[Rfam]
Nucleotides: 095
Base pairs, nucleotide, nucleotide: 004089005088006087007086008085009084010083011082012081013080014079017075018074019073020072021071022070024066025065026064027063034059035058036057037056042051043050044049
Number, partner (000 for none) and nucleotide at each position: 001000g002000g003000a004089g005088g006087u007086u008085g009084g010083c011082g012081g013080u014079g015000g016000a017075c018074g019073a020072g021071c022070c023000a024066c025065u026064c027063g028000c029000c030000a031000a032000c033000c034059g035058g036057g037056u038000c039000a040000g041000g042051u043050c044049c045000g046000g047000a048000a049044g050043g051042a052000a053000g054000c055000a056037g057036c058035c059034c060000u061000a062000a063027c064026g065025a066024g067000c068000c069000c070022g071021g072020u073019u074018c075017g076000g077000g078000u079014c080013g081012u082011u083010g084009u085008c086007a087006g088005c089004c090000u091000c092000c093000c094000a095000c